[Rfam]
RNA: t44 RNA
RNA sequence: GUUAAUUUGUAUUUAAACCACACACGUAUCGGCACAUGGUCCGGGGUGCCCCUCGGGGUCGGAUUAUGGGAUGCGUGGAGGCUUAAC
Numbered sequence: 001g002u003u004a005a006u007u008u009g010u011a012u013u014u015a016a017a018c019c020a021c022a023c024a025c026g027u028a029u030c031g032g033c034a035c036a037u038g039g040u041c042c043g044g045g046g047u048g049c050c051c052c053u054c055g056g057g058g059u060c061g062g063a064u065u066a067u068g069g070g071a072u073g074c075g076u077g078g079a080g081g082c083u084u085a086a087c
Stems, first nucleotide, its partner, number of pairs: 023077008035068009048059004